[Rfam]
This 137-nucleotide sequence from Halcyon senegalensis belongs to the Rfam family "Small nucleolar RNA SNORA15". Taxonomically the source falls in Halcyon (Eukaryota, Metazoa, Neoaves, Telluraves). Rfam classes the family as an H/ACA-box small nucleolar RNA. From the family's description: ACA15 is a member of the H/ACA class of snoRNA that guide the sites of modification of uridines to pseudouridines. The family's consensus secondary structure was predicted with RNAfold. Its family is annotated with RNA processing and nucleolus in the Gene Ontology.

RNA sequence: GCAUGGCCGAAUUCUGCACUAGCUUUCCUCCGUAGCUAAUGCAGUCAGACACUAUGCCAGAAUAAAUUUCCUUUUUCACCCUGAUUGGUGUGCGUUUUGUAUGAGAACGGGCAUACCUUUGGAAGUGGGAUACAGAG
Numbered sequence: 001g002c003a004u005g006g007c008c009g010a011a012u013u014c015u016g017c018a019c020u021a022g023c024u025u026u027c028c029u030c031c032g033u034a035g036c037u038a039a040u041g042c043a044g045u046c047a048g049a050c051a052c053u054a055u056g057c058c059a060g061a062a063u064a065a066a067u068u069u070c071c072u073u074u075u076u077c078a079c080c081c082u083g084a085u086u087g088g089u090g091u092g093c094g095u096u097u098u099g100u101a102u103g104a105g106a107a108c109g110g111g112c113a114u115a116c117c118u119u120u121g122g123a124a125g126u127g128g129g130a131u132a133c134a135g136a137g
Stems, first nucleotide, its partner, number of pairs: 001057006014044005069130003073125006087117002091115002094112004